[Rfam]
RNA sequence: AUGAGUGGCCCGGGAGAGUUCGCCCGGUUGUGGGCGGAGCCGAAGGGGAAUGCAAAAGCUCUCAGGCAAAAGGAUCGGGCCAUGACG
Numbered sequence: 001a002u003g004a005g006u007g008g009c010c011c012g013g014g015a016g017a018g019u020u021c022g023c024c025c026g027g028u029u030g031u032g033g034g035c036g037g038a039g040c041c042g043a044a045g046g047g048g049a050a051u052g053c054a055a056a057a058g059c060u061c062u063c064a065g066g067c068a069a070a071a072g073g074a075u076c077g078g079g080c081c082a083u084g085a086c087g
Stems, first nucleotide, its partner, number of pairs: 006082008020037004039067003042063002046061003
Glycine riboswitch aptamer: an 87-nucleotide RNA sequence from Firmicutes bacterium CAG:137. The pairing is the family consensus, mapped onto this sequence. Lineage of the source: Bacteria > Bacillati > Bacillota.